[Rfam]
The family of this 100-nucleotide sequence from Cnephaeus nilssonii is "mir-9261 microRNA precursor family". It scores 92 bits against the family's covariance model.
RNA sequence: AACAAUUUGUCCUGCGUCCCACGGCGUUUUAAAAAAGUCCUAUUUUGGAAAGAUUUAGGGACUUUUUAAAAACGCCGUGGGACGCGGGACAAAUUGUUAA
Numbered sequence: 001a002a003c004a005a006u007u008u009g010u011c012c013u014g015c016g017u018c019c020c021a022c023g024g025c026g027u028u029u030u031a032a033a034a035a036a037g038u039c040c041u042a043u044u045u046u047g048g049a050a051a052g053a054u055u056u057a058g059g060g061a062c063u064u065u066u067u068a069a070a071a072a073c074g075c076c077g078u079g080g081g082a083c084g085c086g087g088g089a090c091a092a093a094u095u096g097u098u099a100a
Base pairs, nucleotide, nucleotide: 001098002097003096004095005094006093007092008091009090010089011088012087013086014085015084016083017082018081019080020079021078022077023076024075025074026073027072028071029070030069032067033066034065035064036063037062038061039060040059041058